[Rfam]
RNA: M-box riboswitch aptamer (ykoK leader)
RNA sequence: GAGCACGGUCGGUAGGUAAGGCUACCACGGGGAUACGGGUUGCUGCCGCAACACAGUGGAGACACUGCAAGUUGGUCAACAGUCGUUGUCGAUUUCAAGGCUUCGACUAAUGCAACACCACCGCCCUGCGAAGCUGAAGCUUGAACGACAAGAUUAAGGUU
Numbered sequence: 001g002a003g004c005a006c007g008g009u010c011g012g013u014a015g016g017u018a019a020g021g022c023u024a025c026c027a028c029g030g031g032g033a034u035a036c037g038g039g040u041u042g043c044u045g046c047c048g049c050a051a052c053a054c055a056g057u058g059g060a061g062a063c064a065c066u067g068c069a070a071g072u073u074g075g076u077c078a079a080c081a082g083u084c085g086u087u088g089u090c091g092a093u094u095u096c097a098a099g100g101c102u103u104c105g106a107c108u109a110a111u112g113c114a115a116c117a118c119c120a121c122c123g124c125c126c127u128g129c130g131a132a133g134c135u136g137a138a139g140c141u142u143g144a145a146c147g148a149c150a151a152g153a154u155u156a157a158g159g160u161u
Base pairs, nucleotide, nucleotide: 007155008154009153010152011146013098015141016140017139020135021134022133026130028128029127030126031125032124039116040115041114042113043112045076046075047074048073055066057064058063082107083106084105085104088101089100090099